This 117-nucleotide RNA from Larkinella knui belongs to the Rfam family "SAM riboswitch aptamer (S box leader)". It scores 64 bits against the family's covariance model. The organism belongs to Larkinella, within Bacteria.
RNA sequence: GGUUUAUAAAGAAGAGGCAAGAGACCGGGCUCGGUGAACCUCUGGCAACCUGCCGCGCGGCAAGGUGCUACAUCCCGCCUACGGUUUGCUCCGGCAUACCGAUAGGAGAUAUAAAUC
Numbered sequence: 001g002g003u004u005u006a007u008a009a010a011g012a013a014g015a016g017g018c019a020a021g022a023g024a025c026c027g028g029g030c031u032c033g034g035u036g037a038a039c040c041u042c043u044g045g046c047a048a049c050c051u052g053c054c055g056c057g058c059g060g061c062a063a064g065g066u067g068c069u070a071c072a073u074c075c076c077g078c079c080u081a082c083g084g085u086u087u088g089c090u091c092c093g094g095c096a097u098a099c100c101g102a103u104a105g106g107a108g109a110u111a112u113a114a115a116u117c
Stems, first nucleotide, its partner, number of pairs: 001117008013043005021032003026077004044069004049065002051062004073109001078106004